[Rfam]
RNA sequence: UAGUGUUACAGCUCUUUUAAAAUUUGUCCAGCAGGCUUUCCAGUUUUUGUAGAAAAGCCCCC
Numbered sequence: 001u002a003g004u005g006u007u008a009c010a011g012c013u014c015u016u017u018u019a020a021a022a023u024u025u026g027u028c029c030a031g032c033a034g035g036c037u038u039u040c041c042a043g044u045u046u047u048u049g050u051a052g053a054a055a056a057g058c059c060c061c062c
Stems, first nucleotide, its partner, number of pairs: 034059006041052001043050002
RNA: U7 small nuclear RNA
Organism: Saimiri boliviensis